Annotation: This 96-nucleotide RNA sequence belongs to the Rfam family "THF (Tetrahydrofolate) riboswitch aptamer". From the family's description: Tetrahydrofolate (THF) riboswitch was first reported for Ames et al. as an RNA motif in 5' untranslated (5'-UTR)regions of folate transport and biosynthesis genes in Firmicutes genomes. The family's consensus secondary structure is taken from published work. Gene Ontology term of the family: tetrahydrofolate metabolic process. It is one of the family's seed sequences.
[Rfam]
RNA sequence: UCAGAGUAGAAAACGAUGCGUUAAGUGUCCAGCAGACGGGGAGUUGCUGCCGGAACGAAAAGCAAAGCUUGCGGUAUCGUUUUCGCAUCCCGCUGA
Numbered sequence: 001u002c003a004g005a006g007u008a009g010a011a012a013a014c015g016a017u018g019c020g021u022u023a024a025g026u027g028u029c030c031a032g033c034a035g036a037c038g039g040g041g042a043g044u045u046g047c048u049g050c051c052g053g054a055a056c057g058a059a060a061a062g063c064a065a066a067g068c069u070u071g072c073g074g075u076a077u078c079g080u081u082u083u084c085g086c087a088u089c090c091c092g093c094u095g096a
Stems, first nucleotide, its partner, number of pairs: 001096004009084010019073003025056002028054003032050004039090003043086001060070004